The record is a 146-nucleotide sequence from Malus baccata, which matches "small nucleolar RNA snoR134" in Rfam. It is annotated as an H/ACA-box small nucleolar RNA. The match comes from Rfam's covariance-model search (97 bits). The base pairs follow the family's consensus structure, which was predicted with RNAalifold.
[Rfam]
RNA sequence: ACGCACGAUGCACCCUGGGCUUCUCUUAGAUUACUUUCACUGAAGAAGAAAGCCCCAAUCCUCAUGCUAAAAUGUCGGUGUCAAGUGUUGCAGUUUAGCCUCGCUUUACUCCAUGGCUUUUCUGUGUCAAAUCGACCACUACAUCU
Numbered sequence: 001a002c003g004c005a006c007g008a009u010g011c012a013c014c015c016u017g018g019g020c021u022u023c024u025c026u027u028a029g030a031u032u033a034c035u036u037u038c039a040c041u042g043a044a045g046a047a048g049a050a051a052g053c054c055c056c057a058a059u060c061c062u063c064a065u066g067c068u069a070a071a072a073u074g075u076c077g078g079u080g081u082c083a084a085g086u087g088u089u090g091c092a093g094u095u096u097a098g099c100c101u102c103g104c105u106u107u108a109c110u111c112c113a114u115g116g117c118u119u120u121u122c123u124g125u126g127u128c129a130a131a132u133c134g135a136c137c138a139c140u141a142c143a144u145c146u
Base pairs, nucleotide, nucleotide: 003067004066005065007063008062010061017055018054019053020052021051022049023048024046025045026044077139080136081135082134086129087128089126090125091124092123093122098117099116100115